[Rfam]
RNA sequence: GCAUGACUGAUUUCCUUUGGUGUUCAGAGUGGACCAGAGUUUUCUAGCACCAUUUGAAAUCGGUUGUGC
Number, nucleotide and partner (000 for none) at each position: 001g069002c068003a067004u066005g064006a000007c063008u062009g061010a060011u059012u058013u057014c056015c000016u000017u000018u052019g051020g050021u049022g048023u000024u000025c000026a045027g044028a043029g000030u000031g000032g000033a000034c000035c000036a000037g000038a000039g000040u000041u000042u000043u028044c027045u026046a000047g000048c022049a021050c020051c019052a018053u000054u000055u000056g014057a013058a012059a011060u010061c009062g008063g007064u005065u000066g004067u003068g002069c001

Shown here is a 69-nucleotide RNA sequence from Clupea harengus, a member of the family "mir-29 microRNA precursor family". Rfam links the family to the GO terms RISC complex and gene silencing by miRNA. For this family Rfam cites "microRNAs: tiny regulators with great potential" (Ambros, Cell, 2001). Lineage of the source: Eukaryota > Bilateria > Euteleostomi > Clupei > Clupea. Rfam describes the family as follows. This family represents the microRNA (miRNA) precursors mir-29.